[Rfam]
Nucleotides: 267
Base pairs, nucleotide, nucleotide: 001267002266003265004264005263006262009058010057011056012030013029014028015027017025019023035055036054037053038052039051064260065259066258067257068256069255073251074250075249076248077247080245081244082243083242084241086240087239088238089237090236095231098229099228100227101226102225106222107221109218110217117213118212119211120210121209122208123207124206125202126201127200128199129198130197131193132192134191135190136189137188138187141182142181143180144179150175151174152173153172158167159166160165
Number, partner (000 for none) and nucleotide at each position: 001267c002266c003265g004264u005263g006262c007000u008000a009058g010057g011056u012030g013029g014028g015027a016000a017025g018000a019023u020000a021000g022000c023019g024000g025017u026000g027015u028014c029013c030012u031000g032000u033000a034000a035055c036054c037053u038052g039051c040000a041000a042000u043000c044000c045000g046000c047000u048000u049000u050000a051039g052038c053037a054036g055035g056011a057010c058009u059000g060000a061000a062000u063000u064260c065259c066258u067257u068256u069255c070000c071000u072000a073251g074250g075249u076248u077247g078000u079000a080245u081244g082243u083242a084241u085000u086240g087239c088238a089237a090236g091000g092000c093000c094000a095231g096000c097000c098229u099228c100227u101226u102225g103000c104000a105000c106222g107221u108000a109218g110217u111000g112000u113000u114000g115000a116000c117213g118212u119211u120210u121209g122208g123207g124206u125202c126201c127200u128199g129198c130197g131193c132192a133000a134191u135190g136189g137188a138187a139000a140000c141182c142181c143180a144179u145000g146000a147000a148000c149000c150175a151174u152173g153172u154000c155000a156000g157000g158167u159166c160165c161000g162000g163000a164000a165160g166159g167158a168000a169000g170000c171000a172153g173152c174151a175150u176000u177000a178000a179144g180143u181142g182141g183000a184000a185000c186000u187138u188137u189136u190135c191134a192132u193131g194000u195000g196000c197130c198129g199128c200127g201126g202125g203000g204000u205000u206124g207123c208122c209121u210120a211119g212118a213117u214000c215000g216000a217110g218109c219000c220000a221107a222106c223000g224000a225102c226101a227100a228099g229098a230000g231095u232000a233000a234000c235000g236090c237089u238088u239087g240086u241084g242083u243082g244081c245080a246000u247077c248076a249075g250074u251073c252000g253000a254000a255069g256068a257067a258066a259065g260064g261000u262006g263005c264004a265003c266002g267001g

Bacterial large signal recognition particle RNA: a 267-nucleotide RNA from Planomicrobium sp. CPCC 101110. The source organism's lineage runs through Bacteria, Bacillati, Bacilli, Caryophanales and Planomicrobium. The family's consensus secondary structure is taken from published work. The match comes from Rfam's covariance-model search (212 bits).